[Rfam]
The record is an 81-nucleotide RNA sequence from Synechococcus sp. WH 5701, which matches "Cyanobacterial ribosomal protein S1 leader" in Rfam. The family's RNA type in Rfam is cis-regulatory leader.
RNA sequence: AUUUGUAUGAUCAUGGAUCGCAUGCGUCUGUCGGCGGGCAGGCACGCGUAUCCCUUCCUUCUGCCCUGAGCAGACCGCCAG
Numbered sequence: 001a002u003u004u005g006u007a008u009g010a011u012c013a014u015g016g017a018u019c020g021c022a023u024g025c026g027u028c029u030g031u032c033g034g035c036g037g038g039c040a041g042g043c044a045c046g047c048g049u050a051u052c053c054c055u056u057c058c059u060u061c062u063g064c065c066c067u068g069a070g071c072a073g074a075c076c077g078c079c080a081g
Base pairs, nucleotide, nucleotide: 023048024047025046026045027044028041029040030039031038033079034078035077036076037075061073062072063071064070
About this RNA:
A reference for the family is Weinberg et al. (2007), "Identification of 22 candidate structured RNAs in bacteria using the CMfinder comparative genomics pipeline", Nucleic Acids Res.